Yersinia sRNA 276: a 192-nucleotide sequence from Erwinia sorbitola. For this family Rfam cites "Transcriptomic profiling of Yersinia pseudotuberculosis reveals reprogramming of the Crp regulon by temperature and uncovers Crp as a master regulator of small RNAs" (Nuss et al., PLoS Genet, 2015). It is annotated as an antisense RNA.
Nucleotides: 192
Stems, first nucleotide, its partner, number of pairs: 005186003012032003017027002020024001035041001050059001062077003078132002081129005087123001091120007100108003133160003137156002140153002164183006
Number, partner (000 for none) and nucleotide at each position: 001000c002000a003000c004000c005186g006185a007184c008000a009000u010000c011000a012032g013031g014030g015000a016000u017027u018026c019000a020024u021000u022000c023000u024020g025000c026018g027017a028000u029000c030014c031013c032012u033000g034000a035041c036000c037000a038000a039000c040000g041035g042000c043000g044000a045000g046000a047000u048000a049000g050059g051000c052000a053000u054000u055000c056000a057000u058000c059050c060000c061000c062077a063076g064075c065000u066000c067000u068000u069000u070000c071000a072000u073000c074000u075064g076063c077062u078132g079131c080000u081129c082128g083127c084126c085125g086000a087123u088000g089000a090000c091120g092119c093118g094117g095116g096115u097114g098000g099000u100108g101107a102106u103000g104000u105000u106102g107101u108100c109000c110000c111000a112000g113000g114097u115096a116095u117094c118093u119092g120091c121000c122000a123087g124000c125085u126084g127083g128082c129081g130000c131079g132078c133160c134159u135158g136000c137156g138155a139000g140153g141152c142000g143000a144000g145000a146000u147000a148000a149000g150000c151000g152141g153140c154000a155138u156137u157000a158135c159134a160133g161000a162000u163000a164183u165182u166181u167180g168179g169178u170000g171000g172000c173000a174000u175000a176000u177000u178169g179168c180167c181166g182165a183164g184007g185006u186005c187000u188000u189000u190000c191000g192000c